[Rfam]
RNA sequence: CAGCUCAAAGUUCUCUUCAGUUGACGCACAAAUCUUUCGCCUUUACUAAAGAUUUCCGUGGAGAGGAGCUUAAUUGAGCAUCGCUUAUUUUUGGGCUGCUUUGCUGCUGGCAAAGCA
Numbered sequence: 001c002a003g004c005u006c007a008a009a010g011u012u013c014u015c016u017u018c019a020g021u022u023g024a025c026g027c028a029c030a031a032a033u034c035u036u037u038c039g040c041c042u043u044u045a046c047u048a049a050a051g052a053u054u055u056c057c058g059u060g061g062a063g064a065g066g067a068g069c070u071u072a073a074u075u076g077a078g079c080a081u082c083g084c085u086u087a088u089u090u091u092u093g094g095g096c097u098g099c100u101u102u103g104c105u106g107c108u109g110g111c112a113a114a115g116c117a
Stems, first nucleotide, its partner, number of pairs: 003079004011067009030055008098116006
Overview: A member of the RNA family "U5 spliceosomal RNA" from Danionella cerebrum, 117 nucleotides long. Rfam describes the family as follows. U5 RNA is a component of both types of known spliceosome. The base pairs follow the family's consensus structure, which is taken from published work. Its family is annotated with U5 snRNP and spliceosomal tri-snRNP complex assembly in the Gene Ontology.